[Rfam]
RNA: tRNA
RNA sequence: AAGAGUAUAAUUUAACGGUAAAAUAGGGAGCUUCAACCUCCAACUUCUCAGUUCGAAUCUGAGUGCUCUUG
Numbered sequence: 001a002a003g004a005g006u007a008u009a010a011u012u013u014a015a016c017g018g019u020a021a022a023a024u025a026g027g028g029a030g031c032u033u034c035a036a037c038c039u040c041c042a043a044c045u046u047c048u049c050a051g052u053u054c055g056a057a058u059c060u061g062a063g064u065g066c067u068c069u070u071g
Stems, first nucleotide, its partner, number of pairs: 001070007010024004027041004047063005